[Rfam]
RNA sequence: UUUUCUACAAAUCGGAAUGACUUGAAGUUUAGCGUGUGUUCAUCAAAAAUAGGCGAAUCUACAAAAAAUAUCAAAAAAAUAUUUUACAUGAAAAAAAUUGACCAAAAUACCCCCGAAAAGUUUCAAGGGUAUUUUGGUCGAUGUUCUUCGCGAAUUAUGUUUUUUAUAUUUUUAUUAGGUACGCCUCACUAAGAUGUACACACGCUCCAAAUUUCAGGUCAUUCCGAUUUGUAGAAAA
Numbered sequence: 001u002u003u004u005c006u007a008c009a010a011a012u013c014g015g016a017a018u019g020a021c022u023u024g025a026a027g028u029u030u031a032g033c034g035u036g037u038g039u040u041c042a043u044c045a046a047a048a049a050u051a052g053g054c055g056a057a058u059c060u061a062c063a064a065a066a067a068a069u070a071u072c073a074a075a076a077a078a079a080u081a082u083u084u085u086a087c088a089u090g091a092a093a094a095a096a097a098u099u100g101a102c103c104a105a106a107a108u109a110c111c112c113c114c115g116a117a118a119a120g121u122u123u124c125a126a127g128g129g130u131a132u133u134u135u136g137g138u139c140g141a142u143g144u145u146c147u148u149c150g151c152g153a154a155u156u157a158u159g160u161u162u163u164u165u166a167u168a169u170u171u172u173u174a175u176u177a178g179g180u181a182c183g184c185c186u187c188a189c190u191a192a193g194a195u196g197u198a199c200a201c202a203c204g205c206u207c208c209a210a211a212u213u214u215c216a217g218g219u220c221a222u223u224c225c226g227a228u229u230u231g232u233a234g235a236a237a238a
Stems, first nucleotide, its partner, number of pairs: 001238030031206002034203006041196003059178003064173008073164005094145002097142016115122002
RNA: MIR8562 microRNA precursor family
Organism: Amborella trichopoda